About this RNA
The record is a 57-nucleotide RNA from Salmonella enterica, which matches "ClpQY promoter" in Rfam. It is one of the family's seed sequences. Pairs were carried over by alignment from the consensus structure.

[Rfam]
RNA sequence: CCCCGUACGCCGUACGGGGCCGCAAUUCAGCAUUAGUAACCAAGGGGUCUGCUCGUG
Numbered sequence: 001c002c003c004c005g006u007a008c009g010c011c012g013u014a015c016g017g018g019g020c021c022g023c024a025a026u027u028c029a030g031c032a033u034u035a036g037u038a039a040c041c042a043a044g045g046g047g048u049c050u051g052c053u054c055g056u057g
Stems, first nucleotide, its partner, number of pairs: 001019008